Rfam assigns this 146-nucleotide RNA from Rhizobium sp. P32RR-XVIII to the family "FMN riboswitch aptamer (RFN element)". The organism belongs to Rhizobium, within Bacteria.
RNA sequence: CCGCGUUCUCAGGGCGGGGUGCAAUUCCCCACCGGCGGUAUCGGGAUUUCAUCCCGGAGCCCGCGAGCGCCUCCAGCAUCUGGAGGGUCAGCAGAUCCGGUGAGAGGCCGGAGCCGACGGUAUAGUCCGGAUGGAAGAGAGCAUGC
Numbered sequence: 001c002c003g004c005g006u007u008c009u010c011a012g013g014g015c016g017g018g019g020u021g022c023a024a025u026u027c028c029c030c031a032c033c034g035g036c037g038g039u040a041u042c043g044g045g046a047u048u049u050c051a052u053c054c055c056g057g058a059g060c061c062c063g064c065g066a067g068c069g070c071c072u073c074c075a076g077c078a079u080c081u082g083g084a085g086g087g088u089c090a091g092c093a094g095a096u097c098c099g100g101u102g103a104g105a106g107g108c109c110g111g112a113g114c115c116g117a118c119g120g121u122a123u124a125g126u127c128c129g130g131a132u133g134g135a136a137g138a139g140a141g142c143a144u145g146c
Stems, first nucleotide, its partner, number of pairs: 003144001005142006017029003031126002033116002035064004059114002067092002096112005118129003
From the family's description: The RFN element is a highly conserved domain that is found frequently in the 5'-untranslated regions of prokaryotic mRNAs that encode for flavin mononucleotide (FMN) biosynthesis and transport proteins.